This 78-nucleotide RNA sequence from Aquarana catesbeiana belongs to the Rfam family "Small nucleolar RNA SNORD72". Pairs were carried over by alignment from the consensus structure. By type it is a C/D-box small nucleolar RNA. snoRNA HBII-240 belongs to the CD family of snoRNAs. It is the human orthologue of the mouse MBII-240 and is predicted to guide 2'O-ribose methylation of the large 28S rRNA at residue U4590. The source organism's lineage runs through Eukaryota, Opisthokonta, Anura, Ranoidea and Aquarana.
RNA sequence: CAUUUAUCAGUGAUGUGUUUAAAAUAAAUGUCUGAACAUAUGACACUCUGUGAUUUCAUUUUCUUGCUGAGAUAAAUG
Numbered sequence: 001c002a003u004u005u006a007u008c009a010g011u012g013a014u015g016u017g018u019u020u021a022a023a024a025u026a027a028a029u030g031u032c033u034g035a036a037c038a039u040a041u042g043a044c045a046c047u048c049u050g051u052g053a054u055u056u057c058a059u060u061u062u063c064u065u066g067c068u069g070a071g072a073u074a075a076a077u078g
Stems, first nucleotide, its partner, number of pairs: 002077007